[Rfam]
Shown here is a 114-nucleotide RNA from Azomonas macrocytogenes, a member of the family "Pseudomon-1/ErsA RNA". The base pairs follow the family's consensus structure, which is taken from published work. For this family Rfam cites "Post-transcriptional regulation of the virulence-associated enzyme AlgC by the sigma(22) -dependent small RNA ErsA of Pseudomonas aeruginosa" (Ferrara et al., Environ Microbiol, 2015). Rfam classes the family as a small RNA. Rfam describes the family as follows. Functions to regulate the AlgC enzyme. Based on this information, the new name ErsA for the RNA was adopted. NCBI's taxonomy places the organism under Bacteria, Gammaproteobacteria, Pseudomonadales, Pseudomonadaceae, Azomonas.
RNA sequence: AUGCUCUUUAAUUGUGUUAAGUGCUGGCAGAUUCCGGGCCCAAACCCUAGCGGUCCGGACUUGAACCUCGAACUUCUAUCCCCACUGAAGUUCGAGGUUUUUUAUUGCAUGCGG
Dot-bracket structure: ................................((((((((...........))))))))...((((((((((((((..........))))))))))).))).............